[Rfam]
RNA: Small nucleolar RNA SNORA79
RNA sequence: CGACAGCUGUUCCUUUCUGAGACCCAAGUUCUGGACUCUUGAGAUUUUAGGCUGUCGUAGAAUAAAGUUGCCUUUUUCACUCAGCAGUGGGUAUCGGCGGGUUGGCUGCCACUCUCACUUCUGAAUUUUGCGGGGCAAGACAAAC
Numbered sequence: 001c002g003a004c005a006g007c008u009g010u011u012c013c014u015u016u017c018u019g020a021g022a023c024c025c026a027a028g029u030u031c032u033g034g035a036c037u038c039u040u041g042a043g044a045u046u047u048u049a050g051g052c053u054g055u056c057g058u059a060g061a062a063u064a065a066a067g068u069u070g071c072c073u074u075u076u077u078c079a080c081u082c083a084g085c086a087g088u089g090g091g092u093a094u095c096g097g098c099g100g101g102u103u104g105g106c107u108g109c110c111a112c113u114c115u116c117a118c119u120u121c122u123g124a125a126u127u128u129u130g131c132g133g134g135g136c137a138a139g140a141c142a143a144a145c
Stems, first nucleotide, its partner, number of pairs: 001057008014044004020037002023034001069137006081124004086119005096110004